[Rfam]
RNA: MIR8565 microRNA precursor family
Organism: Amborella trichopoda
RNA sequence: CCCACACCCAUGUGUGUAGAACCCCAAAGGAUCACCAUUAAAUUUAGCACAGAUAUCUAGAAAAAUUAUCACAUGAGUAUGAGACUUGAUUUUUCUAGAGAUCCGUGUCAAAUUUAAUGGUGAUCCUUUAGGGUCCUACAUAUAUGGGUGUGGG
Numbered sequence: 001c002c003c004a005c006a007c008c009c010a011u012g013u014g015u016g017u018a019g020a021a022c023c024c025c026a027a028a029g030g031a032u033c034a035c036c037a038u039u040a041a042a043u044u045u046a047g048c049a050c051a052g053a054u055a056u057c058u059a060g061a062a063a064a065a066u067u068a069u070c071a072c073a074u075g076a077g078u079a080u081g082a083g084a085c086u087u088g089a090u091u092u093u094u095c096u097a098g099a100g101a102u103c104c105g106u107g108u109c110a111a112a113u114u115u116a117a118u119g120g121u122g123a124u125c126c127u128u129u130a131g132g133g134u135c136c137u138a139c140a141u142a143u144a145u146g147g148g149u150g151u152g153g154g
Stems, first nucleotide, its partner, number of pairs: 002153012015140005021134004026129003030125003034121012047108004052103003056099013069082003073078001